[Rfam]
RNA sequence: GCUGAUCGCGCGGGAGAGUUCUUCGAUUCGGCAACGAAGCGAAGGCGCCGAAGGAGCAACCGCCCCGGAAUCUCUCAGGCACCCGGACCGCGUGGAUCGA
Dot-bracket structure: .....((((((((......((((((..............)))))).(((((..(((...((.....))...))))).))).......)))))))).....
Description:
A member of the RNA family "Glycine riboswitch aptamer" from Novosphingobium sp. Gsoil 351, 100 nucleotides long. This family represents the bacterial glycine riboswitch.